RNA sequence: CAUGCGAAGUAGCGUCAGACGGGGAAUUGGUAUGUUGCAAGUUCUACCAGUUCAUCGUCUGACGUUUAAGUUCCCAUG
Numbered sequence: 001c002a003u004g005c006g007a008a009g010u011a012g013c014g015u016c017a018g019a020c021g022g023g024g025a026a027u028u029g030g031u032a033u034g035u036u037g038c039a040a041g042u043u044c045u046a047c048c049a050g051u052u053c054a055u056c057g058u059c060u061g062a063c064g065u066u067u068a069a070g071u072u073c074c075c076a077u078g
Stems, first nucleotide, its partner, number of pairs: 001078004006073003010069001012065011024053009
Rfam assigns this 78-nucleotide sequence from Heliconius melpomene to the family "mir-6301 microRNA precursor family".
The organism belongs to Heliconius, within Eukaryota.
The sequence is in the family's curated seed alignment.
Its family is annotated with miRNA-mediated post-transcriptional gene silencing and RISC complex in the Gene Ontology.